[Rfam]
Nucleotides: 404
Stems, first nucleotide, its partner, number of pairs: 052149004057073003061069002090105001092103001095100001109136005115130002177225003182217004187212003191209001194208003198204001251303002254300003258297003263294002266291003271287003274283002304324005309318003328403004338396006357376004362371002
Number, partner (000 for none) and nucleotide at each position: 001000g002000c003000u004000c005000c006000c007000u008000g009000g010000a011000g012000g013000g014000a015000g016000g017000g018000c019000g020000g021000c022000c023000u024000g025000g026000g027000g028000c029000g030000g031000u032000a033000u034000g035000g036000c037000u038000g039000u040000g041000u042000u043000c044000u045000g046000u047000g048000a049000c050000a051000a052149a053148g054147u055146g056000g057073c058072g059071c060000g061069u062068g063000g064000c065000u066000g067000a068062u069061g070000g071059g072058u073057g074000c075000g076000a077000g078000c079000c080000g081000a082000g083000u084000g085000u086000g087000u088000g089000c090105g091000u092103g093000g094000a095100c096000g097000c098000g099000u100095g101000a102000a103092u104000g105090u106000g107000a108000u109136c110135g111134u112133g113132c114000c115130u116129g117000g118000g119000g120000u121000g122000u123000g124000c125000a126000a127000g128000g129116c130115g131000a132113g133112u134111g135110c136109g137000u138000g139000g140000c141000c142000c143000c144000u145000g146055u147054g148053c149052u150000c151000c152000u153000c154000c155000c156000c157000c158000c159000g160000c161000c162000u163000a164000c165000a166000c167000a168000u169000u170000g171000a172000u173000c174000u175000u176000a177225u178224u179223u180000g181000a182217u183216c184215g185214g186000g187212u188211u189210g190000u191209g192000a193000c194208c195207c196206c197000a198204g199000c200000c201000g202000c203000u204198c205000c206196g207195g208194g209191c210189c211188g212187a213000c214185c215184c216183g217182a218000g219000a220000u221000g222000a223179a224178a225177a226000g227000c228000u229000c230000c231000c232000c233000u234000c235000c236000u237000g238000c239000g240000a241000a242000g243000c244000c245000c246000c247000c248000u249000u250000u251303u252302c253000g254300g255299g256298g257000c258297g259296c260295u261000g262000u263294g264293c265000a266291g267290c268289g269000a270000g271287g272286c273285c274283c275282c276000u277000c278000g279000g280000g281000u282275g283274g284000c285273g286272g287271c288000a289268c290267g291266c292000c293264g294263c295260g296259g297258c298256c299255c300254c301000g302252g303251a304324g305323u306322c307321g308320g309318u310317c311316c312000u313000a314000c315000g316311g317310g318309g319000c320308u321307c322306g323305g324304c325000g326000c327000u328403c329402a330401g331400a332000a333000g334000u335000g336000a337000u338396g339395a340394a341393u342392u343391g344000a345000u346000c347000a348000g349000a350000u351000a352000g353000a354000c355000g356000a357376g358375g359374c360373c361000g362371g363370g364000c365000u366000u367000g368000u369000c370363c371362c372000g373360g374359g375358c376357c377000g378000c379000u380000g381000a382000u383000u384000a385000u386000c387000g388000a389000g390000g391343c392342g393341a394340u395339u396338c397000u398000g399000a400331u401330c402329u403328g404000a
Annotation
Shown here is a 404-nucleotide sequence from Phyllostomus discolor, a member of the family "Small Cajal body-specific RNA 2". The literature on the family includes a 2004 paper in Curr Biol by Tycowski et al., "Guide RNAs with 5' caps and novel box C/D snoRNA-like domains for modification of snRNAs in metazoa". The base pairs follow the family's consensus structure, which is taken from published work. The family has 20 seed sequences and 612 matches in Rfam 15.1. Rfam links the family to the GO terms nucleolus and RNA processing.